Rfam assigns this 83-nucleotide sequence from Cohnella zeiphila to the family "c-di-GMP-I riboswitch aptamer".
RNA sequence: AAGUUGCAACGGCAAACCUGUCGAAAGACAGCGACGCAAAGCCACGGGUCUACGGUACCAACUAUGAUCGCCGGGCUGCCAAC
Numbered sequence: 001a002a003g004u005u006g007c008a009a010c011g012g013c014a015a016a017c018c019u020g021u022c023g024a025a026a027g028a029c030a031g032c033g034a035c036g037c038a039a040a041g042c043c044a045c046g047g048g049u050c051u052a053c054g055g056u057a058c059c060a061a062c063u064a065u066g067a068u069c070g071c072c073g074g075g076c077u078g079c080c081a082a083c
Base pairs, nucleotide, nucleotide: 012037013036018031019030020029021028022027040077041076042075043074045073046072047071048068049067050066055062056061
A search with the family's covariance model found it, with a score of 73 bits.